[Rfam]
RNA: Lysine riboswitch aptamer
RNA sequence: GUGAUGCAUAGAGGAGCGGAUAGGAUGAAACUAUGGCGUGCCGGCCGGCUUAUGUCAUAGCAGGAGGGCUAUUCGCCGAAGCGGAAUAUUCUGGCCAGAUAUUUUGCUGGGGUUGUAUUGAAGAAAUACAACACUGUCAUUCAAAAGACCCAUGUUUGAAUGAAGUGCUAUCUCACGA
Numbered sequence: 001g002u003g004a005u006g007c008a009u010a011g012a013g014g015a016g017c018g019g020a021u022a023g024g025a026u027g028a029a030a031c032u033a034u035g036g037c038g039u040g041c042c043g044g045c046c047g048g049c050u051u052a053u054g055u056c057a058u059a060g061c062a063g064g065a066g067g068g069c070u071a072u073u074c075g076c077c078g079a080a081g082c083g084g085a086a087u088a089u090u091c092u093g094g095c096c097a098g099a100u101a102u103u104u105u106g107c108u109g110g111g112g113u114u115g116u117a118u119u120g121a122a123g124a125a126a127u128a129c130a131a132c133a134c135u136g137u138c139a140u141u142c143a144a145a146a147g148a149c150c151c152a153u154g155u156u157u158g159a160a161u162g163a164a165g166u167g168c169u170a171u172c173u174c175a176c177g178a
Base pairs, nucleotide, nucleotide: 006173008171009170010169011168016076017075018074019073020072021071022070023069031060032059033058034057035056036055037054038053039052040051080108081107082106083105084104085103086102087101088100089099090098109135110134112132113131114130115129116128117127118126119125137163138162139161140160141159142158143157144156145155
Dot-bracket structure: .....(.((((....((((((((.......((((((((((..........))))))))))........))))))))...(((((((((((.......)))))))))))((.((((((((.....)))))))).)).(((((((((.........)))))))))....)))).).....